The record is a 69-nucleotide RNA sequence from Coregonus sp. 'balchen', which matches "Small nucleolar RNA SNORD24" in Rfam. The base pairs follow the family's consensus structure, which was predicted with PFOLD.

[Rfam]
RNA sequence: UGCAAAUGAUGUGAAUAAUAUUUGCUAUCUGAACAGCAAUGUUGACAUCCCACCAAGAUCACUGAUGCA
Numbered sequence: 001u002g003c004a005a006a007u008g009a010u011g012u013g014a015a016u017a018a019u020a021u022u023u024g025c026u027a028u029c030u031g032a033a034c035a036g037c038a039a040u041g042u043u044g045a046c047a048u049c050c051c052a053c054c055a056a057g058a059u060c061a062c063u064g065a066u067g068c069a
Stems, first nucleotide, its partner, number of pairs: 001069004
Rfam classes the family as a C/D-box small nucleolar RNA.